[Rfam]
RNA sequence: UUUGCUACUGUUGUUGGCCAAGUGUAGUGUCUGAUCUUAGAAGUUUAAUAUCUGAUAUGCCCUUGAUGAGAGGAUUUUGUAUUGAACAAACUUUGGGGCAUGGGAGUUGGACCUGGAGCUUGCUCUCUCUGCUCCAUGCAUUGCCCCAGUAUUGCAGUGACUCUGGGAAUGGUGCACUGAUA
Numbered sequence: 001u002u003u004g005c006u007a008c009u010g011u012u013g014u015u016g017g018c019c020a021a022g023u024g025u026a027g028u029g030u031c032u033g034a035u036c037u038u039a040g041a042a043g044u045u046u047a048a049u050a051u052c053u054g055a056u057a058u059g060c061c062c063u064u065g066a067u068g069a070g071a072g073g074a075u076u077u078u079g080u081a082u083u084g085a086a087c088a089a090a091c092u093u094u095g096g097g098g099c100a101u102g103g104g105a106g107u108u109g110g111a112c113c114u115g116g117a118g119c120u121u122g123c124u125c126u127c128u129c130u131g132c133u134c135c136a137u138g139c140a141u142u143g144c145c146c147c148a149g150u151a152u153u154g155c156a157g158u159g160a161c162u163c164u165g166g167g168a169a170u171g172g173u174g175c176a177c178u179g180a181u182a
Stems, first nucleotide, its partner, number of pairs: 002013001004011002038057002042053002059075001061073004103135005109129002115126004138175006145167005

The family of this 182-nucleotide RNA from Emberiza fucata is "U2 spliceosomal RNA".
Rfam 15.1 lists 71,512 matches to the family in 2,642 species.
Pairs were carried over by alignment from the consensus structure, which is taken from published work.
U2 is a small nuclear RNA (snRNA) component of the spliceosome (involved in pre-mRNA splicing). Complementary binding between U2 snRNA (in an area lying towards the 5' end but 3' to hairpin I) and the branchpoint sequence (BPS) of the intron results the bulging out of an unpaired adenosine, on the BPS, which initiates a nucleophilic attack at the intronic 5' splice site, thus starting the first of two transesterification reactions that mediate splicing.
It scores 90 bits against the family's covariance model.
Lineage of the source: Eukaryota > Archosauria > Telluraves > Emberizini > Emberiza.
The family's RNA type in Rfam is spliceosomal small nuclear RNA.
Clan: U2 clan.